[Rfam]
RNA sequence: CCUCCCGCUUUUCCUCCCUGAGCGGGUGCCUUGGCCAAAUGCCAAGGCGUAUUACACCCCGGUCAUUCUCCCCUUGGGCCGGGGUUUCUUUU
Number, nucleotide and partner (000 for none) at each position: 001c000002c000003u000004c026005c025006c024007g023008c022009u021010u000011u000012u000013c000014c000015u000016c000017c000018c000019u000020g000021a009022g008023c007024g006025g005026g004027u000028g048029c047030c046031u045032u044033g043034g042035c000036c000037a000038a000039a000040u000041g000042c034043c033044a032045a031046g030047g029048c028049g000050u000051a000052u000053u000054a000055c000056a000057c084058c083059c082060c081061g080062g079063u078064c077065a000066u000067u000068c000069u000070c000071c000072c000073c000074u000075u000076g000077g064078g063079c062080c061081g060082g059083g058084g057085u000086u000087u000088c000089u000090u000091u000092u000
Description:
This 92-nucleotide RNA sequence from Silvimonas terrae belongs to the Rfam family "Burkholderia RNA 7 (anti-hemB)". The match comes from Rfam's covariance-model search (70 bits). The base pairs follow the family's consensus structure, which is taken from published work. The organism belongs to Silvimonas, within Bacteria. This RNA motif was identified by computational search in b-proteobacteria Burkholderia. Co-purified with Hfq, expression confirmed by Northern blot. The literature on the family includes a 2012 paper in BMC Genomics by Khoo et al., "Computational discovery and RT-PCR validation of novel Burkholderia conserved and Burkholderia pseudomallei unique sRNAs".